[Rfam]
This 151-nucleotide RNA sequence from Theobroma cacao belongs to the Rfam family "U4 spliceosomal RNA". The base pairs follow the family's consensus structure, which is taken from published work. Rfam 15.1 lists 32,178 matches to the family in 2,547 species. It is annotated as a spliceosomal small nuclear RNA. The organism belongs to Theobroma, within Eukaryota.
RNA sequence: AUCUUUGCGCUUGGGGCAAUGACGCAGCUAGUGAGGUUCUAACCGAGGCGCGUCUAUUGCUGGUUGAAAACUUUUUCCAAACCCCCUCUUAGGCUUGGGUUCAGCCUUGUCCUUCGAGAAUUUCUGGAAGUGCUUCCUUUGGGGUAGAGCU
Numbered sequence: 001a002u003c004u005u006u007g008c009g010c011u012u013g014g015g016g017c018a019a020u021g022a023c024g025c026a027g028c029u030a031g032u033g034a035g036g037u038u039c040u041a042a043c044c045g046a047g048g049c050g051c052g053u054c055u056a057u058u059g060c061u062g063g064u065u066g067a068a069a070a071c072u073u074u075u076u077c078c079a080a081a082c083c084c085c086c087u088c089u090u091a092g093g094c095u096u097g098g099g100u101u102c103a104g105c106c107u108u109g110u111c112c113u114u115c116g117a118g119a120a121u122u123u124c125u126g127g128a129a130g131u132g133c134u135u136c137c138u139u140u141g142g143g144g145u146a147g148a149g150c151u
Stems, first nucleotide, its partner, number of pairs: 021054005027049003035044003086118003091113003095109001097107003132150003